[Rfam]
RNA sequence: GUGAUGAACUCCGAAGAGUGGCCGCAAGGCCCGCCGAAGGAGCAAGCGGCGCGAACGGCCCGUGAAACUCUCAGGCUUGUGACGGAGGGGGUGCA
Numbered sequence: 001g002u003g004a005u006g007a008a009c010u011c012c013g014a015a016g017a018g019u020g021g022c023c024g025c026a027a028g029g030c031c032c033g034c035c036g037a038a039g040g041a042g043c044a045a046g047c048g049g050c051g052c053g054a055a056c057g058g059c060c061c062g063u064g065a066a067a068c069u070c071u072c073a074g075g076c077u078u079g080u081g082a083c084g085g086a087g088g089g090g091g092u093g094c095a
Base pairs, nucleotide, nucleotide: 009087010086011085012084013083020031021030022029023028033076034075035074036072037071040070041069042068046063047062048061049060